[Rfam]
Annotation: A member of the RNA family "permuted transfer-messenger RNA" from Acetobacter garciniae, 217 nucleotides long. Taxonomically the source falls in Acetobacter (Bacteria, Pseudomonadati, Alphaproteobacteria, Acetobacterales). Gene Ontology term of the family: RNA catabolic process. The family's RNA type in Rfam is non-coding RNA gene.
RNA sequence: GGCAAUAAACGGGGUGUGGCAUAGGCGUAGUGGACCCGGGGGCGGUACCCGGCGUCUCCACCAUGUAUCCGGGCAGGUAUGCUCCGGAUCGCAGGGGACGAAACAGGCUCGACACGCGCAGUAAAGACACUUUUUUUGCUCGGCAUUGUACCACCGAUAUCGGGCUAUUUUCACAAGUGCCAAUGAUAACUCUGAGGUGCUCGCUGUCGCUGCAUAA
Numbered sequence: 001g002g003c004a005a006u007a008a009a010c011g012g013g014g015u016g017u018g019g020c021a022u023a024g025g026c027g028u029a030g031u032g033g034a035c036c037c038g039g040g041g042g043c044g045g046u047a048c049c050c051g052g053c054g055u056c057u058c059c060a061c062c063a064u065g066u067a068u069c070c071g072g073g074c075a076g077g078u079a080u081g082c083u084c085c086g087g088a089u090c091g092c093a094g095g096g097g098a099c100g101a102a103a104c105a106g107g108c109u110c111g112a113c114a115c116g117c118g119c120a121g122u123a124a125a126g127a128c129a130c131u132u133u134u135u136u137u138g139c140u141c142g143g144c145a146u147u148g149u150a151c152c153a154c155c156g157a158u159a160u161c162g163g164g165c166u167a168u169u170u171u172c173a174c175a176a177g178u179g180c181c182a183a184u185g186a187u188a189a190c191u192c193u194g195a196g197g198u199g200c201u202c203g204c205u206g207u208c209g210c211u212g213c214a215u216a217a
Base pairs, nucleotide, nucleotide: 001140002139003138004137005136014130015129016128017127026118027117028116030115031114032113036052037051038050039049040048053100054099055098056097057096058095059094141156142155143154
The family's consensus secondary structure is taken from published work.